[Rfam]
RNA sequence: GGGCACCUACGGGGGCCUAUAACAUCAGGGCCCAUAUGGGUCCGCCAAGCAAACGGAAGUAGCAA
Numbered sequence: 001g002g003g004c005a006c007c008u009a010c011g012g013g014g015g016c017c018u019a020u021a022a023c024a025u026c027a028g029g030g031c032c033c034a035u036a037u038g039g040g041u042c043c044g045c046c047a048a049g050c051a052a053a054c055g056g057a058a059g060u061a062g063c064a065a
Stems, first nucleotide, its partner, number of pairs: 001018004006014003028043006